[Rfam]
RNA sequence: UAUUCUGGAUUAGCCGCCUGAUUUCAGGCUAGGCUGGUGGUGAAAUAACCACCGGCCU
Numbered sequence: 001u002a003u004u005c006u007g008g009a010u011u012a013g014c015c016g017c018c019u020g021a022u023u024u025c026a027g028g029c030u031a032g033g034c035u036g037g038u039g040g041u042g043a044a045a046u047a048a049c050c051a052c053c054g055g056c057c058u
Stems, first nucleotide, its partner, number of pairs: 016029003032057010